This 110-nucleotide RNA sequence from Bacillus pseudomycoides belongs to the Rfam family "epsC RNA". The organism belongs to Bacillus, within Bacteria.

[Rfam]
Nucleotides: 110
Stems, first nucleotide, its partner, number of pairs: 001019004007034007035093004039088008049062004065077004097109004
Number, partner (000 for none) and nucleotide at each position: 001019c002018g003017g004016u005000g006000a007034u008033g009032u010031c011030u012029c013028c014000u015000u016004a017003c018002c019001g020000c021000u022000a023000u024000c025000a026000a027000u028013g029012g030011a031010g032009g033008c034007a035093c036092u037091c038090g039088a040087u041086u042085a043084u044083g045082c046081u047000g048000u049062g050061g051060g052059u053000u054000a055000a056000a057000a058000c059052a060051c061050c062049u063000u064000a065077g066076a067075c068074g069000u070000u071000a072000g073000u074068c075067g076066u077065c078000a079000a080000g081046a082045g083044c084043g085042u086041g087040a088039u089000g090038u091037g092036a093035g094000g095000g096000a097109g098108g099107g100106u101000u102000a103000a104000a105000u106100g107099c108098c109097c110000g

Pairs were carried over by alignment from the consensus structure, which is taken from published work. The match comes from Rfam's covariance-model search (108 bits).